Rfam assigns this 132-nucleotide sequence from Rattus norvegicus to the family "Small nucleolar RNA SNORA17". Its family is annotated with RNA processing and nucleolus in the Gene Ontology. Lineage of the source: Eukaryota > Metazoa > Dipnotetrapodomorpha > Tetrapoda > Rattus. About the family: snoRNA ACA 17 belongs to the H/ACA family of snoRNAs and is predicted to guide pseudouridylation of the 28S rRNA at positions U4659 and U4598. It shares the same host gene together with ACA43. NB This family has a high threshold value to exclude a large number of closely related sequences that do not appear to have conserved H and ACA boxes, and may be pseudogenes. Its Rfam clan is "SNORA17 clan". For this family Rfam cites "Mapping to nucleotide resolution of pseudouridine residues in large subunit ribosomal RNAs from representative eukaryotes, prokaryotes, archaebacteria, mitochondria and chloroplasts" (Ofengand and Bakin, J Mol Biol, 1997).
RNA sequence: CCUGACCCUAGAGGCAUUCCAGGUGUGACCGCUGUGUCACAUGUGCAUUAGUAGGCUGCAGAGAGGAGAGAGGCUAUGUCUAUGCUCAGUGUUCUGACUUAAGAACAUCUGAAUGAUUAGCAGAAUCAUUCC
Numbered sequence: 001c002c003u004g005a006c007c008c009u010a011g012a013g014g015c016a017u018u019c020c021a022g023g024u025g026u027g028a029c030c031g032c033u034g035u036g037u038c039a040c041a042u043g044u045g046c047a048u049u050a051g052u053a054g055g056c057u058g059c060a061g062a063g064a065g066g067a068g069a070g071a072g073g074c075u076a077u078g079u080c081u082a083u084g085c086u087c088a089g090u091g092u093u094c095u096g097a098c099u100u101a102a103g104a105a106c107a108u109c110u111g112a113a114u115g116a117u118u119a120g121c122a123g124a125a126u127c128a129u130u131c132c
Stems, first nucleotide, its partner, number of pairs: 002061003007055004013049002020045002024041006068129001070127002074123002077120001083115002086112004090107005